Rfam assigns this 84-nucleotide RNA sequence from Betta splendens to the family "mir-143 microRNA precursor family".
On this family, see Chen et al., Genes Dev 2005: "The developmental miRNA profiles of zebrafish as determined by small RNA cloning".
[Rfam]
RNA sequence: AUUCCUGUGGCCCAUGGUGCAGUGCUGCAUCUCUGGUCAGUUUGUAGUCUGAGAUGAAGCACUGUAGCUCGGGACACUGGACAG
Number, nucleotide and partner (000 for none) at each position: 001a000002u000003u000004c000005c000006u000007g000008u000009g000010g000011c073012c072013c071014a000015u000016g068017g000018u066019g065020c064021a063022g062023u061024g060025c059026u058027g000028c056029a055030u054031c053032u052033c051034u000035g049036g048037u046038c000039a000040g000041u000042u000043u000044g000045u000046a037047g000048u036049c035050u000051g033052a032053g031054a030055u029056g028057a000058a026059g025060c024061a023062c022063u021064g020065u019066a018067g000068c016069u000070c000071g013072g012073g011074a000075c000076a000077c000078u000079g000080g000081a000082c000083a000084g000

A search with the family's covariance model found it, with a score of 85 bits.
Pairs were carried over by alignment from the consensus structure, which was predicted with RNAalifold.
Lineage of the source: Eukaryota > Deuterostomia > Eurypterygia > Anabantoidei > Betta.